[Rfam]
RNA sequence: UGGGAGAGCGCUUGGAAUUCCCAGUAGUUUAGCAGUGUUAAUAGCUUUUUCUUUGGCCAGAUUAGGCGGUUAGUGAAUC
Numbered sequence: 001u002g003g004g005a006g007a008g009c010g011c012u013u014g015g016a017a018u019u020c021c022c023a024g025u026a027g028u029u030u031a032g033c034a035g036u037g038u039u040a041a042u043a044g045c046u047u048u049u050u051c052u053u054u055g056g057c058c059a060g061a062u063u064a065g066g067c068g069g070u071u072a073g074u075g076a077a078u079c
Base pairs, nucleotide, nucleotide: 001023002022003021004020005019006018038073039072040071041070042069044067045066046065047064050061051060052059